[Rfam]
RNA sequence: GGGUUGUGAUGAGAAAUUAGGAAAGUCAUCCACCACUCUGAUAUUCAUUGUGAUUGAUAAACUUUCUCAUUACCCAUACUUUCUUUUUUGUUUCUGAGCCC
Numbered sequence: 001g002g003g004u005u006g007u008g009a010u011g012a013g014a015a016a017u018u019a020g021g022a023a024a025g026u027c028a029u030c031c032a033c034c035a036c037u038c039u040g041a042u043a044u045u046c047a048u049u050g051u052g053a054u055u056g057a058u059a060a061a062c063u064u065u066c067u068c069a070u071u072a073c074c075c076a077u078a079c080u081u082u083c084u085u086u087u088u089u090g091u092u093u094c095u096g097a098g099c100c101c
Stems, first nucleotide, its partner, number of pairs: 001101004
Rfam assigns this 101-nucleotide RNA sequence from Helianthus annuus to the family "Small nucleolar RNA Z221/R21b". It is annotated as a C/D-box small nucleolar RNA. A reference for the family is Chen et al. (2003), "The high diversity of snoRNAs in plants: identification and comparative study of 120 snoRNA genes from Oryza sativa", Nucleic Acids Res.